[Rfam]
serC leader: a 52-nucleotide RNA sequence from Azorhizobium oxalatiphilum. Rfam classes the family as a cis-regulatory leader. Lineage of the source: Bacteria > Pseudomonadati > Hyphomicrobiales > Xanthobacteraceae > Azorhizobium. The match comes from Rfam's covariance-model search (65 bits). Rfam links the family to the GO term regulation of gene expression. For this family Rfam cites "Evidence for a second class of S-adenosylmethionine riboswitches and other regulatory RNA motifs in alpha-proteobacteria" (Corbino et al., Genome Biol, 2005). Rfam's curators write: This family is a putative regulatory RNA structure that is found upstream of the serC-serA operon in some alpha-proteobacteria. The final stem of the structure overlaps the ribosome binding site of the serC reading frame.
RNA sequence: CAGCGGGACACUCCCCCCCAACGGGGAGCGCCCAUCUGUAAGGAUGGAUACA
Numbered sequence: 001c002a003g004c005g006g007g008a009c010a011c012u013c014c015c016c017c018c019c020a021a022c023g024g025g026g027a028g029c030g031c032c033c034a035u036c037u038g039u040a041a042g043g044a045u046g047g048a049u050a051c052a
Stems, first nucleotide, its partner, number of pairs: 011028006032047006